[Rfam]
The family of this 80-nucleotide RNA is "Flavo-1 RNA". The match comes from Rfam's covariance-model search (78 bits).

RNA sequence: UUUUAGCCCUGAUAGUAGUGAAAAUCCUUUUCUUUUUUUCUUUAAAAAAGAAAAGAUUACAACGAAUAGCAAGAAAUAGC
Numbered sequence: 001u002u003u004u005a006g007c008c009c010u011g012a013u014a015g016u017a018g019u020g021a022a023a024a025u026c027c028u029u030u031u032c033u034u035u036u037u038u039u040c041u042u043u044a045a046a047a048a049a050g051a052a053a054a055g056a057u058u059a060c061a062a063c064g065a066a067u068a069g070c071a072a073g074a075a076a077u078a079g080c
Base pairs, nucleotide, nucleotide: 010071011070013068014067018063019062023058024057025056026055029053030052031051032050033049034048035047036046037045038044